Rfam assigns this 125-nucleotide RNA sequence from Streptomyces mashuensis to the family "Streptomyces RNA 3920".
On this family, see Vockenhuber et al., RNA Biol 2011: "Deep sequencing-based identification of small non-coding RNAs in Streptomyces coelicolor".
Rfam's curators write: Identified by deep sequencing of transcriptome at the end of exponential growth phase. Sequencing size consistent with northern blot size. Streptomyces specific.
Rfam classes the family as a small RNA.
NCBI's taxonomy places the organism under Bacteria, Bacillati, Actinomycetota, Actinomycetes, Streptomyces.
RNA sequence: GAUAGGGCGGUGUCGCCGGUGUGAUUGGACACUGACGCAGAGUCAACUAGCCUGGAUCGGGCGGUUCUUCCCGCGUGGAACCGCGACGGCUCGAGCCAUGAGGGGGGAGGCUCGAGCCGUCCUGC
Numbered sequence: 001g002a003u004a005g006g007g008c009g010g011u012g013u014c015g016c017c018g019g020u021g022u023g024a025u026u027g028g029a030c031a032c033u034g035a036c037g038c039a040g041a042g043u044c045a046a047c048u049a050g051c052c053u054g055g056a057u058c059g060g061g062c063g064g065u066u067c068u069u070c071c072c073g074c075g076u077g078g079a080a081c082c083g084c085g086a087c088g089g090c091u092c093g094a095g096c097c098a099u100g101a102g103g104g105g106g107g108a109g110g111c112u113c114g115a116g117c118c119g120u121c122c123u124g125c
Stems, first nucleotide, its partner, number of pairs: 001014004015051002018048001021032003033045004058075002061072001063070002076083002085121013099106001